[Rfam]
This 91-nucleotide sequence from Bacillus sp. cl95 belongs to the Rfam family "c-di-GMP-I riboswitch aptamer". The family is grouped with related families in Rfam's "c-di-GMP_I riboswitch clan".

RNA sequence: UUUGACAAAGGGCAAAUUUUACGAAAGUAAAAGACGCAAAGCCACGGGCCUAAAACAAGAUUUUUCUUGUCAUGGCAGCCGGGUUGCAUAG
Numbered sequence: 001u002u003u004g005a006c007a008a009a010g011g012g013c014a015a016a017u018u019u020u021a022c023g024a025a026a027g028u029a030a031a032a033g034a035c036g037c038a039a040a041g042c043c044a045c046g047g048g049c050c051u052a053a054a055a056c057a058a059g060a061u062u063u064u065u066c067u068u069g070u071c072a073u074g075g076c077a078g079c080c081g082g083g084u085u086g087c088a089u090a091g
Stems, first nucleotide, its partner, number of pairs: 012037002017032006040085004045081003048076003055070006

The source organism's lineage runs through Bacteria, Bacillati, Bacillota, Bacilli and Bacillus.